Notes:
Rfam assigns this 227-nucleotide part of an RNA from Sulfurimonas aquatica to the family "Bacterial large subunit ribosomal RNA". The source organism's lineage runs through Bacteria, Pseudomonadati, Campylobacterota, Epsilonproteobacteria and Sulfurimonas.
[Rfam]
RNA sequence: GAGUUGUGGUAUCUGGCAAGGUUAAUCGAACGAGAAGCCGUAGCGAAAGCGAGUCUUAAUAGGGCGAAUUAGUCAGAUGCUGCAGACCCGAAACUAAGUGAUCUAUCCAUGUGCAGGUUGAAGCUGGUGUAAGAGCCAGUGGAGGACCGAACCCGUAUAGGUUGAAAACUGUUGGGAUGACAUGUGGAUAGGGGUGAAAGGCCAAUCAAACUUAGUGAUAGCUGGUU
Numbered sequence: 001g002a003g004u005u006g007u008g009g010u011a012u013c014u015g016g017c018a019a020g021g022u023u024a025a026u027c028g029a030a031c032g033a034g035a036a037g038c039c040g041u042a043g044c045g046a047a048a049g050c051g052a053g054u055c056u057u058a059a060u061a062g063g064g065c066g067a068a069u070u071a072g073u074c075a076g077a078u079g080c081u082g083c084a085g086a087c088c089c090g091a092a093a094c095u096a097a098g099u100g101a102u103c104u105a106u107c108c109a110u111g112u113g114c115a116g117g118u119u120g121a122a123g124c125u126g127g128u129g130u131a132a133g134a135g136c137c138a139g140u141g142g143a144g145g146a147c148c149g150a151a152c153c154c155g156u157a158u159a160g161g162u163u164g165a166a167a168a169c170u171g172u173u174g175g176g177a178u179g180a181c182a183u184g185u186g187g188a189u190a191g192g193g194g195u196g197a198a199a200g201g202c203c204a205a206u207c208a209a210a211c212u213u214a215g216u217g218a219u220a221g222c223u224g225g226u227u
Stems, first nucleotide, its partner, number of pairs: 005084013020039004026033002043050002053065004087225002090222001094215006103191011114179001116148004123140006152176003157172004193203003
A search with the family's covariance model found it, with a score of 2822 bits.